[Rfam]
RNA sequence: GAGAACUAAUAACUUGAAAAGUCAAAUGAUAGGGUAACGCCUUGAAGGGCUUUCUCUGAUACUCCGAAUAGCGAAACGUUAAGUAUGAAAUGUUUUGUUAUAAGCUCGGUGAAGUCGGCUGAGGUUAUCUCCUAACAGGUUAAGCUGAGGAAAUGCGAACUAGAGGUAGUUGAGGAUAAUAUAGGUCGGGAGUCCAAAAA
Numbered sequence: 001g002a003g004a005a006c007u008a009a010u011a012a013c014u015u016g017a018a019a020a021g022u023c024a025a026a027u028g029a030u031a032g033g034g035u036a037a038c039g040c041c042u043u044g045a046a047g048g049g050c051u052u053u054c055u056c057u058g059a060u061a062c063u064c065c066g067a068a069u070a071g072c073g074a075a076a077c078g079u080u081a082a083g084u085a086u087g088a089a090a091u092g093u094u095u096u097g098u099u100a101u102a103a104g105c106u107c108g109g110u111g112a113a114g115u116c117g118g119c120u121g122a123g124g125u126u127a128u129c130u131c132c133u134a135a136c137a138g139g140u141u142a143a144g145c146u147g148a149g150g151a152a153a154u155g156c157g158a159a160c161u162a163g164a165g166g167u168a169g170u171u172g173a174g175g176a177u178a179a180u181a182u183a184g185g186u187c188g189g190g191a192g193u194c195c196a197a198a199a200a
Stems, first nucleotide, its partner, number of pairs: 018053006031043004054192004064109004068101013116188005125179006131150003138146002154173001156172002159170004
Annotation
Shown here is a 200-nucleotide RNA sequence from Clostridium sp. BL8, a member of the family "Group II catalytic intron D1-D4-5". About the family: Group II introns are found in rRNA, tRNA and mRNA of organelles in fungi, plants and protists, and also in mRNA in bacteria. The literature on the family includes a 2003 paper in Crit Rev Biochem Mol Biol by Lehmann and Schmidt, "Group II introns: structure and catalytic versatility of large natural ribozymes". A search with the family's covariance model found it, with a score of 172 bits. Pairs were carried over by alignment from the consensus structure. The organism belongs to Clostridium, within Bacteria. Gene Ontology term of the family: Group II intron splicing.